[Rfam]
RNA sequence: GAGCAAUAAGGAGAACAACGCUUCCUGUGAUGUCGGGGUGCAUCACAACCAUCUGAUUAUCAGAUGACCUCUGCGCCCCUGAGCUC
Numbered sequence: 001g002a003g004c005a006a007u008a009a010g011g012a013g014a015a016c017a018a019c020g021c022u023u024c025c026u027g028u029g030a031u032g033u034c035g036g037g038g039u040g041c042a043u044c045a046c047a048a049c050c051a052u053c054u055g056a057u058u059a060u061c062a063g064a065u066g067a068c069c070u071c072u073g074c075g076c077c078c079c080u081g082a083g084c085u086c
Stems, first nucleotide, its partner, number of pairs: 001086004